[Rfam]
RNA: Group I catalytic intron
Organism: Hymenoscyphus fraxineus
RNA sequence: AUAUUUAGGCUAUAAGUGGGUAUCCUCCCAUGCAUAGCAAAAAAAAGCAUUAUAUGGCAAAACCUUCAAAUUGCGGGAAAGUCUUAAAGACAAAUCUACCAAGUUAAUACAGUAAUGUAAUUAAUGGAACAGGUAAUGACUCGUUGUAUGGUAAAAACGAUUUGUAUGAAGAAAUGAAAUAGAUAAUCCGCAGCCAAACACCAAACAUCUUGAAACAAAGGGUUGGUGCGCAGUUCAUCGACUAAAUGUAGGUUGGUAAAUAAUUAAUCAAAUUAUUUGCUUAAGAUAUAGUCAGGCAUAACUUAACAGUUAUG
Numbered sequence: 001a002u003a004u005u006u007a008g009g010c011u012a013u014a015a016g017u018g019g020g021u022a023u024c025c026u027c028c029c030a031u032g033c034a035u036a037g038c039a040a041a042a043a044a045a046a047g048c049a050u051u052a053u054a055u056g057g058c059a060a061a062a063c064c065u066u067c068a069a070a071u072u073g074c075g076g077g078a079a080a081g082u083c084u085u086a087a088a089g090a091c092a093a094a095u096c097u098a099c100c101a102a103g104u105u106a107a108u109a110c111a112g113u114a115a116u117g118u119a120a121u122u123a124a125u126g127g128a129a130c131a132g133g134u135a136a137u138g139a140c141u142c143g144u145u146g147u148a149u150g151g152u153a154a155a156a157a158c159g160a161u162u163u164g165u166a167u168g169a170a171g172a173a174a175u176g177a178a179a180u181a182g183a184u185a186a187u188c189c190g191c192a193g194c195c196a197a198a199c200a201c202c203a204a205a206c207a208u209c210u211u212g213a214a215a216c217a218a219a220g221g222g223u224u225g226g227u228g229c230g231c232a233g234u235u236c237a238u239c240g241a242c243u244a245a246a247u248g249u250a251g252g253u254u255g256g257u258a259a260a261u262a263a264u265u266a267a268u269c270a271a272a273u274u275a276u277u278u279g280c281u282u283a284a285g286a287u288a289u290a291g292u293c294a295g296g297c298a299u300a301a302c303u304u305a306a307c308a309g310u311u312a313u314g
Stems, first nucleotide, its partner, number of pairs: 061254005067248002072192006082183003193234002199228003206222001208221003238294001240293005256280009299312005